[Rfam]
RNA sequence: AGGCUGCAAUAAACAUUCAUUGCUGUCGGUGGGUUUACAUAAGAAUAACUCACUGAUCAAUGAAUGCAGACUGCGGUUCA
Numbered sequence: 001a002g003g004c005u006g007c008a009a010u011a012a013a014c015a016u017u018c019a020u021u022g023c024u025g026u027c028g029g030u031g032g033g034u035u036u037a038c039a040u041a042a043g044a045a046u047a048a049c050u051c052a053c054u055g056a057u058c059a060a061u062g063a064a065u066g067c068a069g070a071c072u073g074c075g076g077u078u079c080a
Stems, first nucleotide, its partner, number of pairs: 002079002004076005014066009025057007033049003
Shown here is an 80-nucleotide sequence from Hippoglossus hippoglossus, a member of the family "mir-181 microRNA precursor family". The sequence is in the family's curated seed alignment. For this family Rfam cites "microRNAs: tiny regulators with great potential" (Ambros, Cell, 2001).